A member of the RNA family "Guanidine-I riboswitch aptamer" from a Gammaproteobacteria bacterium, 138 nucleotides long. The pairing is the family consensus, mapped onto this sequence. Rfam links the family to the GO term regulation of gene expression.

RNA sequence: CAAAUAGAAAGCUAGGGUUCCGAUUUCUUUUUAUCAGCGCUUAACGCACUAAUGAAAAAACAAUGACUGGUCCGAGAGCUUUCGACCACAGCGGUAUAGGCCACUGGGGUUACACGGCGGGAUAAAAGCCCGGGAGAA
Numbered sequence: 001c002a003a004a005u006a007g008a009a010a011g012c013u014a015g016g017g018u019u020c021c022g023a024u025u026u027c028u029u030u031u032u033a034u035c036a037g038c039g040c041u042u043a044a045c046g047c048a049c050u051a052a053u054g055a056a057a058a059a060a061c062a063a064u065g066a067c068u069g070g071u072c073c074g075a076g077a078g079c080u081u082u083c084g085a086c087c088a089c090a091g092c093g094g095u096a097u098a099g100g101c102c103a104c105u106g107g108g109g110u111u112a113c114a115c116g117g118c119g120g121g122a123u124a125a126a127a128g129c130c131c132g133g134g135a136g137a138a
Stems, first nucleotide, its partner, number of pairs: 007083006015073002020070002022067001023064003084111004089106003113133001115136001119131003